Rfam assigns this 157-nucleotide RNA from Glycine max to the family "MIR4371 microRNA precursor family". The source organism's lineage runs through Eukaryota, Magnoliopsida, Pentapetalae, Fabales and Glycine subgen. Soja. Its family is annotated with miRNA-mediated post-transcriptional gene silencing and RISC complex in the Gene Ontology. The family has 4 seed sequences and 321 matches in Rfam 15.1. The family's consensus secondary structure was predicted with RNAalifold. The family is grouped with related families in Rfam's "MIR4387 microRNA precursor clan". A search with the family's covariance model found it, with a score of 133 bits.
RNA sequence: CUAUUAAGUAAUGACGUGACAAAUGGAGUGUCACAUCAUCACACCUAGUCACGGACACCUCAUUGACAUGUCAUCCCUUCAAUGGCGUGACAAUGGCGUGUCGAUGAUAAGGCAUGAUGAUGUGGCACUUAAUUUGUCACGUCAUUGCUUAACGGAA
Numbered sequence: 001c002u003a004u005u006a007a008g009u010a011a012u013g014a015c016g017u018g019a020c021a022a023a024u025g026g027a028g029u030g031u032c033a034c035a036u037c038a039u040c041a042c043a044c045c046u047a048g049u050c051a052c053g054g055a056c057a058c059c060u061c062a063u064u065g066a067c068a069u070g071u072c073a074u075c076c077c078u079u080c081a082a083u084g085g086c087g088u089g090a091c092a093a094u095g096g097c098g099u100g101u102c103g104a105u106g107a108u109a110a111g112g113c114a115u116g117a118u119g120a121u122g123u124g125g126c127a128c129u130u131a132a133u134u135u136g137u138c139a140c141g142u143c144a145u146u147g148c149u150u151a152a153c154g155g156a157a
Stems, first nucleotide, its partner, number of pairs: 001155002004152021026130016044112003048108004054102005070086005